Rfam assigns this 64-nucleotide RNA from Folsomia candida to the family "mir-14 microRNA precursor family". Pairs were carried over by alignment from the consensus structure, which was predicted with RNAalifold. On this family, see Li et al., BMC Genomics 2009: "Direct sequencing and expression analysis of a large number of miRNAs in Aedes aegypti and a multi-species survey of novel mosquito miRNAs".
Nucleotides: 064
Base pairs, nucleotide, nucleotide: 002063003062004061005060006059007058008057010055011054012053013052015050017048018047019046020045021044025042026041027039028038
Number, partner (000 for none) and nucleotide at each position: 001000c002063a003062u004061a005060g006059g007058g008057g009000u010055g011054a012053g013052a014000a015050a016000u017048g018047g019046a020045c021044u022000u023000u024000g025042g026041c027039g028038u029000g030000c031000c032000u033000u034000a035000a036000a037000a038028g039027u040000c041026g042025u043000c044021a045020g046019u047018c048017u049000u050015u051000u052013u053012c054011u055010c056000u057008c058007u059006c060005c061004u062003a063002u064000a